[Rfam]
RNA: SAH (S-adenosyl-L-homocysteine) riboswitch aptamer
Organism: Oligella urethralis
RNA sequence: GCUGACGAGGGGCGUUGCGACAGAUUGAUUAUCUGCCAGGCUCGUCAGCACUAAACCAUCUUAUUAUCCUAACGGCGCUCACCAUAU
Number, nucleotide and partner (000 for none) at each position: 001g000002c048003u047004g046005a045006c044007g043008a042009g000010g000011g000012g000013c000014g000015u000016u000017g000018c000019g000020a000021c035022a034023g033024a032025u031026u000027g000028a000029u000030u000031a025032u024033c023034u022035g021036c000037c000038a000039g000040g000041c000042u008043c007044g006045u005046c004047a003048g002049c000050a000051c000052u000053a000054a000055a000056c000057c000058a000059u000060c000061u000062u000063a000064u000065u000066a000067u000068c000069c000070u000071a000072a000073c000074g000075g000076c000077g000078c000079u000080c000081a000082c000083c000084a000085u000086a000087u000